About this RNA: Rfam assigns this 79-nucleotide RNA from Myotis brandtii to the family "mir-9198 microRNA precursor family". Rfam 15.1 lists 64 matches to the family in 7 species. Taxonomically the source falls in Myotis (Eukaryota, Eumetazoa, Dipnotetrapodomorpha, Laurasiatheria).
[Rfam]
RNA sequence: GCUGCCAUUCACACCCGCUGCCGGUGCCCAGUGCUGGCCCUGAUUGCUUGGCGCCGUCAGUGGGUGUGAGUGGUGGCUG
Numbered sequence: 001g002c003u004g005c006c007a008u009u010c011a012c013a014c015c016c017g018c019u020g021c022c023g024g025u026g027c028c029c030a031g032u033g034c035u036g037g038c039c040c041u042g043a044u045u046g047c048u049u050g051g052c053g054c055c056g057u058c059a060g061u062g063g064g065u066g067u068g069a070g071u072g073g074u075g076g077c078u079g
Stems, first nucleotide, its partner, number of pairs: 004074017022056007